[Rfam]
RNA sequence: UCCAGCUCAUGAUGACUUGUUCUAAAACCCAAACUGGGAUGGACAAGUUUGAUGUCGCCUGGA
Numbered sequence: 001u002c003c004a005g006c007u008c009a010u011g012a013u014g015a016c017u018u019g020u021u022c023u024a025a026a027a028c029c030c031a032a033a034c035u036g037g038g039a040u041g042g043a044c045a046a047g048u049u050u051g052a053u054g055u056c057g058c059c060u061g062g063a
Base pairs, nucleotide, nucleotide: 001063002062003061004060005059014049015048016047017046018045019044020043021042022041029037030036031035
Overview
Shown here is a 63-nucleotide RNA from Megalops atlanticus, a member of the family "Selenocysteine insertion sequence 1". The source organism's lineage runs through Eukaryota, Eumetazoa, Neopterygii, Elopocephala and Megalops. For this family Rfam cites "A survey of metazoan selenocysteine insertion sequences" (Lambert et al., Biochimie, 2002). The base pairs follow the family's consensus structure, which is taken from published work.